[Rfam]
RNA: S10-Clostridia ribosomal protein leader
Organism: Lactococcus hircilactis
RNA sequence: AUGUAGCGAUGAGGCGAGAGGUUGCGACACACCCGAAGGUAUUGCCAUACCAACGUGUCGGUUUUCUCGCGGAGCUAGCCUAUUAUUAAACAAUAGACGA
Numbered sequence: 001a002u003g004u005a006g007c008g009a010u011g012a013g014g015c016g017a018g019a020g021g022u023u024g025c026g027a028c029a030c031a032c033c034c035g036a037a038g039g040u041a042u043u044g045c046c047a048u049a050c051c052a053a054c055g056u057g058u059c060g061g062u063u064u065u066c067u068c069g070c071g072g073a074g075c076u077a078g079c080c081u082a083u084u085a086u087u088a089a090a091c092a093a094u095a096g097a098c099g100a
Stems, first nucleotide, its partner, number of pairs: 014070003018066004025060005078098001080096005